[Rfam]
RNA sequence: CUUAGAAAAGGCAAACUCAGGGAAACUUGAGGACGCAAAACCACGGGCCGUAUAACAAUGGCAGCCGGGUCGCAGAUA
Numbered sequence: 001c002u003u004a005g006a007a008a009a010g011g012c013a014a015a016c017u018c019a020g021g022g023a024a025a026c027u028u029g030a031g032g033a034c035g036c037a038a039a040a041c042c043a044c045g046g047g048c049c050g051u052a053u054a055a056c057a058a059u060g061g062c063a064g065c066c067g068g069g070u071c072g073c074a075g076a077u078a
Stems, first nucleotide, its partner, number of pairs: 003075001011036002016031006034064001040070003044067003047062003